[Rfam]
RNA: c-di-AMP riboswitch aptamer (ydaO/yuaA leader)
RNA sequence: AUGAUUAACAGGCUGAAUCUCUUGAAAAGAGUACGGAGGAACCAAGUUUUCUGGGGCUAAUCCCUCAAGGUAGGGUUCCCUAUUUCCCGAGCCCGUCAGCUAACUCCGGAAGCCUAAAAUAGGAGGACUA
Dot-bracket structure: ..........((((....((((.....))))..(((((....((.......))(((.....((.....))..(((..........)))...))).........)))))..))))................